[Rfam]
RNA sequence: AAAGAGGGACGUCAGAACUUAUGGCAGAGACGGGGAAACCACUUUUGGCCGUGUUCGCACGGUCUUGGGGUGAAGUCCUGCAGCGCAGGGCCGGCCUUCUCAGCCGAAUCCGACAGCUCACCUCGCAGGCAAAAGAGAGGCAGU
Numbered sequence: 001a002a003a004g005a006g007g008g009a010c011g012u013c014a015g016a017a018c019u020u021a022u023g024g025c026a027g028a029g030a031c032g033g034g035g036a037a038a039c040c041a042c043u044u045u046u047g048g049c050c051g052u053g054u055u056c057g058c059a060c061g062g063u064c065u066u067g068g069g070g071u072g073a074a075g076u077c078c079u080g081c082a083g084c085g086c087a088g089g090g091c092c093g094g095c096c097u098u099c100u101c102a103g104c105c106g107a108a109u110c111c112g113a114c115a116g117c118u119c120a121c122c123u124c125g126c127a128g129g130c131a132a133a134a135g136a137g138a139g140g141c142a143g144u
Base pairs, nucleotide, nucleotide: 011130013129018029019028020027031125032124033123034122035121040067041066068111069110070109076090077089078088079087093105094104095103
Record summary
This 144-nucleotide RNA from Psychromicrobium lacuslunae belongs to the Rfam family "c-di-AMP riboswitch aptamer (ydaO/yuaA leader)". It scores 53 bits against the family's covariance model. Rfam's curators write: This family represents a conserved RNA structure found upstream of the ydaO and yuaA genes in Bacillus subtilis and related genes in other bacteria. The organism belongs to Psychromicrobium, within Bacteria. The base pairs follow the family's consensus structure.